[Rfam]
RNA sequence: UAACCUGUCUAGUGAUAGGCAGCUGAACCAUCAGAAGUCAGCUGAGGUCAUAGUACGAAUCGGUCUAGAACGAUUCGGAAGGAC
Numbered sequence: 001u002a003a004c005c006u007g008u009c010u011a012g013u014g015a016u017a018g019g020c021a022g023c024u025g026a027a028c029c030a031u032c033a034g035a036a037g038u039c040a041g042c043u044g045a046g047g048u049c050a051u052a053g054u055a056c057g058a059a060u061c062g063g064u065c066u067a068g069a070a071c072g073a074u075u076c077g078g079a080a081g082g083a084c
Base pairs, nucleotide, nucleotide: 001025002024005022006021007020008019009018010017011016038045039044047084048083049082056077057076058075059074060073061072
The family of this 84-nucleotide RNA from Bacillus sp. FJAT-27916 is "Group II catalytic intron D1-D4-1".
Lineage of the source: Bacteria > Bacillota > Bacilli > Bacillaceae > Bacillus.
Rfam's curators write: Group II introns are found in rRNA, tRNA and mRNA of organelles in fungi, plants and protists, and also in mRNA in bacteria.
The pairing is the family consensus, mapped onto this sequence.
Rfam 15.1 lists 2,508 matches to the family in 1,144 species.